[Rfam]
RNA sequence: UCAUCUCAAUCGCUGAAUCCUUAAUUGGAGCGGAGGAACCACUUUUGUAGAGGUAAUCUACUUGGGGUGAAUCCUUUAAAGAAUGUAAAAAGGAAGGGUUAUUCUUGACCCUAAUCCGACAGCUAACUUCGUAAGCGUUAAGAAAAGAUGGU
Number, nucleotide and partner (000 for none) at each position: 001u000002c000003a000004u000005c000006u000007c000008a000009a000010u000011c137012g136013c135014u134015g000016a000017a000018u029019c028020c027021u000022u000023a000024a000025u000026u000027g020028g019029a018030g132031c131032g130033g129034a128035g127036g000037a000038a000039c000040c064041a063042c000043u000044u000045u000046u000047g000048u000049a000050g000051a000052g000053g000054u000055a000056a000057u000058c000059u000060a000061c000062u000063u041064g040065g117066g116067g115068u000069g000070a000071a000072u000073c093074c092075u091076u090077u000078a000079a000080a000081g000082a000083a000084u000085g000086u000087a000088a000089a000090a076091a075092g074093g073094a000095a000096g111097g110098g109099u108100u000101a000102u000103u000104c000105u000106u000107g000108a099109c098110c097111c096112u000113a000114a000115u067116c066117c065118g000119a000120c000121a000122g000123c000124u000125a000126a000127c035128u034129u033130c032131g031132u030133a000134a014135g013136c012137g011138u000139u000140a000141a000142g000143a000144a000145a000146a000147g000148a000149u000150g000151g000152u000
RNA: c-di-AMP riboswitch aptamer (ydaO/yuaA leader)